[Rfam]
RNA sequence: UGUCGAUGGGGAUUCCUGGCGGCGUGAUUUCAGAAUAAAUGGCAGAAUCACAUUGCCAGGGAUUUCCAAUCGCUG
Numbered sequence: 001u002g003u004c005g006a007u008g009g010g011g012a013u014u015c016c017u018g019g020c021g022g023c024g025u026g027a028u029u030u031c032a033g034a035a036u037a038a039a040u041g042g043c044a045g046a047a048u049c050a051c052a053u054u055g056c057c058a059g060g061g062a063u064u065u066c067c068a069a070u071c072g073c074u075g
Stems, first nucleotide, its partner, number of pairs: 001075002004072003010067002012063011024051007
Dot-bracket structure: ((.(((...(((((((((((((.(((((((..............))))))).)))))))))))..))..))).))

Overview:
Rfam assigns this 75-nucleotide RNA sequence from Acipenser ruthenus to the family "mir-23 microRNA precursor family". Rfam 15.1 lists 1,403 matches to the family in 646 species. For this family Rfam cites "The developmental miRNA profiles of zebrafish as determined by small RNA cloning" (Chen et al., Genes Dev, 2005). The organism belongs to Acipenser, within Eukaryota. It scores 63 bits against the family's covariance model.